A member of the RNA family "Bacterial RNase P class A" from Antrihabitans auranticaus, 427 nucleotides long.
It is annotated as a ribozyme.
Lineage of the source: Bacteria > Actinomycetota > Actinomycetes > Nocardiaceae > Antrihabitans.
Its family is annotated with ribonuclease P activity, tRNA processing and dimeric ribonuclease P complex in the Gene Ontology.
RNA sequence: CGAGCUGACCGGGCGGCCGCGGUGGCGGGAACCGGAUCUCCAGAUUCGUAGCCCACUGCCGAGGAAAGUCCGGACUCCACAGAGCAGGGUGGUUGCUAACGGCAACCCGAGGUAACUCGCGGGAAAGUGCCACAGAAAACAGACCGCCGCCGCUUUGCUUUCCGGAGCAGAACGGCGGUCAGGGUGAAACGGUGCGGUAAGAGCGCACCAGCGCUUCGGGUGACCGGAGCGGCUAGGUAAACCCCACCCGGAGCAAGGUCAAAGGUCGGACCGGGCAACCAGUCCGGCUGCGCGGGUGUUCGAGGGCUGCUCGCCCGAGCCUGCGGGUGGACCGCUCGAGGUACCCGGCAACGGUGUGCCCAGAUGGAUGGUCGCCACGCGCUGCGUGCAGCGCGGACAGGAUCCGGCUUACAAGUCAGCUCGUCCG
Dot-bracket structure: (((((((((.((((((((.((((((.((........................)).))))))....[[[.[[[[[((((...[[[[.((((((((((.....)))))(((((....)))).)((...(((((............(((((((((.(((((((....))))))).)))))))..)).......((((((.......)))))).(((((((((....)))))))).)..)))..)))))))))))))...((((...............................((((((......((((.]]]]))))..)))))).....))))......(....(((....)))....)..........)))))))..........................]]]]]]]].)..)))))))))....